[Rfam]
RNA: Selenocysteine transfer RNA
RNA sequence: GGGGCUGAAUGGGGUACUGGUGUCCCCCACGGUCUUCAAAACCGCUUGUGAGGCACGUGUUGUCUUAGGUGGGUUCGAUUCCCACACAGUCCC
Numbered sequence: 001g002g003g004g005c006u007g008a009a010u011g012g013g014g015u016a017c018u019g020g021u022g023u024c025c026c027c028c029a030c031g032g033u034c035u036u037c038a039a040a041a042c043c044g045c046u047u048g049u050g051a052g053g054c055a056c057g058u059g060u061u062g063u064c065u066u067a068g069g070u071g072g073g074u075u076c077g078a079u080u081c082c083c084a085c086a087c088a089g090u091c092c093c
Base pairs, nucleotide, nucleotide: 001093002092003091004090005089006088007087012027013026014025016023017022029046030044031043032042033041049067050066051065052064053063070084071083072082073081